[Rfam]
RNA sequence: CUUUCUGUGCAGGUUGGGAUUAGUAGCAAUGCUCUUGUACUUGUAAGGUAUUGCACUUGUCCCGGCCUGUUUAGGACUU
Number, nucleotide and partner (000 for none) at each position: 001c000002u000003u000004u075005c074006u073007g000008u000009g070010c069011a068012g067013g066014u065015u000016g063017g062018g061019a060020u059021u000022a057023g056024u055025a000026g054027c053028a052029a051030u050031g049032c048033u047034c000035u000036u000037g000038u000039a000040c000041u000042u000043g000044u000045a000046a000047g033048g032049u031050a030051u029052u028053g027054c026055a024056c023057u022058u000059g020060u019061c018062c017063c016064g000065g014066c013067c012068u011069g010070u009071u000072u000073a006074g005075g004076a000077c000078u000079u000

This 79-nucleotide RNA sequence from Clupea harengus belongs to the Rfam family "mir-92 microRNA precursor family". A search with the family's covariance model found it, with a score of 77 bits. Rfam links the family to the GO terms miRNA-mediated post-transcriptional gene silencing and RISC complex. About the family: This family represents the microRNA precursor mir-92. Human miR-92 has two predicted hairpin precursor sequences: mir-92-1 on chromosome 13 and mir-92-2 on chromosome X. miR-92 has also been cloned from mouse embryonic stem cells. The mature sequence is excised from the 3' arm of the hairpin. Lineage of the source: Eukaryota > Eumetazoa > Chordata > Teleostomi > Clupea. Its Rfam clan is "mir-92 microRNA precursor clan".